About this RNA:
The family of this 158-nucleotide RNA sequence from Glycine soja is "MIR4371 microRNA precursor family". The match comes from Rfam's covariance-model search (137 bits).

RNA sequence: CCAUUAAGUGAUGACGUGACAGAUAGAGUGACAUAUCAUCACGCCUUGUCACAGACAUCUUAUUGCCACAUCAUCACCUUCAAUGACGUGACAAUGACGUGUCAAUGAUUGUACAUGAUGGUGUGACACUCUGUUUGCCACGUCAUCACUUAACGGAA
Numbered sequence: 001c002c003a004u005u006a007a008g009u010g011a012u013g014a015c016g017u018g019a020c021a022g023a024u025a026g027a028g029u030g031a032c033a034u035a036u037c038a039u040c041a042c043g044c045c046u047u048g049u050c051a052c053a054g055a056c057a058u059c060u061u062a063u064u065g066c067c068a069c070a071u072c073a074u075c076a077c078c079u080u081c082a083a084u085g086a087c088g089u090g091a092c093a094a095u096g097a098c099g100u101g102u103c104a105a106u107g108a109u110u111g112u113a114c115a116u117g118a119u120g121g122u123g124u125g126a127c128a129c130u131c132u133g134u135u136u137g138c139c140a141c142g143u144c145a146u147c148a149c150u151u152a153a154c155g156g157a158a
Base pairs, nucleotide, nucleotide: 001156002155004153005152006151007150008149009148010147011146012145013144014143015142016141017140018139020137021136022135023134024133025132026131027130028129029128030127032125033124034123035122036121037120038119039118040117041116043114046111048109049108050107051106054103055102056101057100058099071086072085073084074083
Dot-bracket structure: ((.(((((((((((((((.(((((((((((.((((((((((.(..(.((((..(((((............((((........))))............)))))..)))).)..).)))))))))).))))))))))).))))))))))))))).))..
The family's consensus secondary structure was predicted with RNAalifold.